This 66-nucleotide RNA from Rhamnella rubrinervis belongs to the Rfam family "Small nucleolar RNA U49". The family is grouped with related families in Rfam's "SNORD49 clan". It scores 57 bits against the family's covariance model. The family has 5 seed sequences and 340 matches in Rfam 15.1. Gene Ontology terms of the family: nucleolus and RNA processing. NCBI's taxonomy places the organism under Eukaryota, Spermatophyta, eudicotyledons, Rhamnaceae, Rhamnella.

RNA sequence: ACCCAAUGAAGAAGACAUCCCUAACUGAUAGGAAGUGCCGUAUGACACUUUAUCAGCAGUGGGCUC
Numbered sequence: 001a002c003c004c005a006a007u008g009a010a011g012a013a014g015a016c017a018u019c020c021c022u023a024a025c026u027g028a029u030a031g032g033a034a035g036u037g038c039c040g041u042a043u044g045a046c047a048c049u050u051u052a053u054c055a056g057c058a059g060u061g062g063g064c065u066c
Base pairs, nucleotide, nucleotide: 014060032051033050034049035048036047037046